[Rfam]
RNA: Bacillus sRNA ncr1575
Organism: Terribacillus saccharophilus
RNA sequence: ACCAACAAACACGAGAGGAUGAUGGGUGACCGAUGAAGUUCUAAUCUUAUUUUUUCACGAAUUGAAAAGUCAUUUUCAACGCGUAUUAAAUAGGAUUAGUCUGCCCAUUUUCUAAUUGAACGGAAACGUAUACCUCUCCAAGGAUGUAUGUGUAUUUCUGGUACGGCUAAUCCUUCCAAUUUAUUUUGGGAGGAUUUUUUC
Number, nucleotide and partner (000 for none) at each position: 001a000002c000003c000004a000005a000006c000007a000008a000009a000010c000011a000012c000013g000014a000015g000016a113017g112018g111019a110020u000021g000022a000023u107024g106025g105026g104027u000028g000029a000030c000031c099032g000033a000034u000035g000036a000037a000038g000039u000040u000041c000042u098043a097044a096045u095046c094047u093048u092049a091050u090051u089052u088053u000054u000055u000056c000057a000058c081059g080060a000061a000062u079063u078064g077065a076066a075067a074068a073069g000070u000071c000072a000073u068074u067075u066076u065077c064078a063079a062080c059081g058082c000083g000084u000085a000086u000087u000088a052089a051090a050091u049092a048093g047094g046095a045096u044097u043098a042099g031100u000101c000102u000103g000104c026105c025106c024107a023108u000109u000110u019111u018112c017113u016114a000115a000116u000117u000118g000119a000120a000121c160122g159123g158124a000125a000126a000127c000128g000129u000130a000131u000132a000133c000134c000135u000136c000137u000138c000139c000140a000141a000142g000143g000144a000145u000146g000147u000148a000149u000150g000151u000152g000153u000154a000155u000156u000157u000158c123159u122160g121161g000162u000163a000164c000165g000166g000167c000168u000169a196170a195171u194172c193173c192174u191175u190176c189177c188178a187179a186180u000181u000182u000183a000184u000185u000186u179187u178188g177189g176190g175191a174192g173193g172194a171195u170196u169197u000198u000199u000200u000201c000